[Rfam]
Shown here is a 110-nucleotide sequence from Manihot esculenta, a member of the family "MIR398 microRNA precursor family". On this family, see Jones-Rhoades and Bartel, Mol Cell 2004: "Computational identification of plant microRNAs and their targets, including a stress-induced miRNA". The match comes from Rfam's covariance-model search (57 bits). The family's consensus secondary structure was predicted with WAR. The organism belongs to Manihot, within Eukaryota.

RNA sequence: GGAAGCCCGGCAGGGGCGACCUGAGAACACAUAAGAACACAAUCCUUGGAAGAUAAGGGAAGAUCUUAGGGUGUCCACAUGUGAUCUCAGGUCGCUCCUGUAGGAAUCCU
Numbered sequence: 001g002g003a004a005g006c007c008c009g010g011c012a013g014g015g016g017c018g019a020c021c022u023g024a025g026a027a028c029a030c031a032u033a034a035g036a037a038c039a040c041a042a043u044c045c046u047u048g049g050a051a052g053a054u055a056a057g058g059g060a061a062g063a064u065c066u067u068a069g070g071g072u073g074u075c076c077a078c079a080u081g082u083g084a085u086c087u088c089a090g091g092u093c094g095c096u097c098c099u100g101u102a103g104g105a106a107u108c109c110u
Stems, first nucleotide, its partner, number of pairs: 007104002011100004016095004023088004028083005